[Rfam]
RNA sequence: UUCUUAUCAAGAGAGGUCGAGGGUAAGGCCCAGUGACGCCUCAGCAACCAUCAAUCACAUAUGAUUGAAAAGGUGCUAAUUCCUGCAAGUUUUUUUAAAACUUGAAAGAUAAGAA
Numbered sequence: 001u002u003c004u005u006a007u008c009a010a011g012a013g014a015g016g017u018c019g020a021g022g023g024u025a026a027g028g029c030c031c032a033g034u035g036a037c038g039c040c041u042c043a044g045c046a047a048c049c050a051u052c053a054a055u056c057a058c059a060u061a062u063g064a065u066u067g068a069a070a071a072g073g074u075g076c077u078a079a080u081u082c083c084u085g086c087a088a089g090u091u092u093u094u095u096u097a098a099a100a101c102u103u104g105a106a107a108g109a110u111a112a113g114a115a
Stems, first nucleotide, its partner, number of pairs: 001115008013042005021031003026084003043077004048073002051068005081107001086104006
Rfam assigns this 115-nucleotide RNA sequence from Cytobacillus dafuensis to the family "SAM riboswitch aptamer (S box leader)". Lineage of the source: Bacteria > Bacillati > Bacillota > Bacilli > Cytobacillus. Rfam links the family to the GO term regulation of gene expression.